[Rfam]
RNA sequence: AGUGAAGAUAGAGGUGCGAAUUGACAAGAGUACUCAGCAGAAGGAUGAAAAGAUCCUGUGAUGGUUGAGGAAAGGGUCGUUCGCCGAAACAUAGAAAAGCUUUUCCUUUUCUUAUGUUGGUUCUGCAUUUAAUAAAUGUAGAAUUGUCAGAAUGCAAUAUUCUGGAGGGCUAUCUCACAU
Numbered sequence: 001a002g003u004g005a006a007g008a009u010a011g012a013g014g015u016g017c018g019a020a021u022u023g024a025c026a027a028g029a030g031u032a033c034u035c036a037g038c039a040g041a042a043g044g045a046u047g048a049a050a051a052g053a054u055c056c057u058g059u060g061a062u063g064g065u066u067g068a069g070g071a072a073a074g075g076g077u078c079g080u081u082c083g084c085c086g087a088a089a090c091a092u093a094g095a096a097a098a099g100c101u102u103u104u105c106c107u108u109u110u111c112u113u114a115u116g117u118u119g120g121u122u123c124u125g126c127a128u129u130u131a132a133u134a135a136a137u138g139u140a141g142a143a144u145u146g147u148c149a150g151a152a153u154g155c156a157a158u159a160u161u162c163u164g165g166a167g168g169g170c171u172a173u174c175u176c177a178c179a180u
Stems, first nucleotide, its partner, number of pairs: 006175006016084006023078003033069006040062001088118007096110004119145011147165007
Shown here is a 180-nucleotide sequence from Psychrobacillus sp. FJAT-21963, a member of the family "Lysine riboswitch aptamer". Its family is annotated with lysine biosynthetic process in the Gene Ontology. The source organism's lineage runs through Bacteria, Bacillota, Bacilli, Bacillaceae and Psychrobacillus. The family's consensus secondary structure is taken from published work.